[Rfam]
RNA sequence: GUCGAAGGCAUUAUUGGGUGCAGCGUUGGUGAAACCCCCCAUGUUCCUAAUCAUCAAGGAAACUGGAUUCUCAUCAACGCUGCACUCAAUGAUGCCUUCG
Number, nucleotide and partner (000 for none) at each position: 001g000002u000003c000004g000005a000006a097007g096008g095009c094010a093011u092012u000013a090014u089015u088016g087017g086018g085019u084020g083021c082022a081023g080024c079025g078026u077027u076028g075029g000030u073031g072032a071033a000034a000035c000036c000037c000038c000039c000040c000041a000042u000043g000044u000045u000046c000047c000048u000049a000050a000051u000052c000053a000054u000055c000056a000057a000058g000059g000060a000061a000062a000063c000064u000065g000066g000067a000068u000069u000070c000071u032072c031073a030074u000075c028076a027077a026078c025079g024080c023081u022082g021083c020084a019085c018086u017087c016088a015089a014090u013091g000092a011093u010094g009095c008096c007097u006098u000099c000100g000